This 81-nucleotide RNA sequence from Myotis myotis belongs to the Rfam family "mir-574 microRNA precursor family". On this family, see Nielsen et al., Anim Genet 2010: "MicroRNA identity and abundance in porcine skeletal muscles determined by deep sequencing".
RNA sequence: AGGCCUAAAGAGAGAAGCAGGGUCUGAUCCGUAGCCUCUGUGGCAGCUGUUGAUCAGCACUUGCCUCUUUCUUUAGCUCCA
Numbered sequence: 001a002g003g004c005c006u007a008a009a010g011a012g013a014g015a016a017g018c019a020g021g022g023u024c025u026g027a028u029c030c031g032u033a034g035c036c037u038c039u040g041u042g043g044c045a046g047c048u049g050u051u052g053a054u055c056a057g058c059a060c061u062u063g064c065c066u067c068u069u070u071c072u073u074u075a076g077c078u079c080c081a
Stems, first nucleotide, its partner, number of pairs: 008073008017064004024057006032049004

Description: It scores 86 bits against the family's covariance model. Clan: mir-574 microRNA precursor clan. Gene Ontology terms of the family: miRNA-mediated post-transcriptional gene silencing and RISC complex. Pairs were carried over by alignment from the consensus structure, which was predicted with RNAalifold.